[Rfam]
RNA: Ribosomal protein L10 leader
RNA sequence: CUCAAUAGUUGAAUGCGACCGAAGACAGUAGGGGGACUAGUCCUUAAUUUUCCUACCGAGGGAGAACAAGUAAUCCUUAAUUCUCUAUGUCUUUGUGGACAUAGAGUUUUUCUAUGUCCAA
Numbered sequence: 001c002u003c004a005a006u007a008g009u010u011g012a013a014u015g016c017g018a019c020c021g022a023a024g025a026c027a028g029u030a031g032g033g034g035g036a037c038u039a040g041u042c043c044u045u046a047a048u049u050u051u052c053c054u055a056c057c058g059a060g061g062g063a064g065a066a067c068a069a070g071u072a073a074u075c076c077u078u079a080a081u082u083c084u085c086u087a088u089g090u091c092u093u094u095g096u097g098g099a100c101a102u103a104g105a106g107u108u109u110u111u112c113u114a115u116g117u118c119c120a121a
Stems, first nucleotide, its partner, number of pairs: 028056006034043003083106010